[Rfam]
RNA sequence: AAGUUAGUGAUAAUUAUAAAAAUAAUUUUUCGUUCUGACUUGUUUAAUUUAAGCAUGAUAAACUUCUUAUUACAAUCAUAGAAUCUAAGUUAC
Numbered sequence: 001a002a003g004u005u006a007g008u009g010a011u012a013a014u015u016a017u018a019a020a021a022a023u024a025a026u027u028u029u030u031c032g033u034u035c036u037g038a039c040u041u042g043u044u045u046a047a048u049u050u051a052a053g054c055a056u057g058a059u060a061a062a063c064u065u066c067u068u069a070u071u072a073c074a075a076u077c078a079u080a081g082a083a084u085c086u087a088a089g090u091u092a093c
Stems, first nucleotide, its partner, number of pairs: 003093002006091002
A member of the RNA family "Small nucleolar RNA snoR8a" from Theobroma cacao, 93 nucleotides long. It is annotated as a C/D-box small nucleolar RNA. Rfam links the family to the GO terms nucleolus and RNA processing. Pairs were carried over by alignment from the consensus structure, which was predicted with WAR. For this family Rfam cites "Multiple snoRNA gene clusters from Arabidopsis" (Brown et al., RNA, 2001). The source organism's lineage runs through Eukaryota, eudicotyledons, Pentapetalae, Malvales and Theobroma.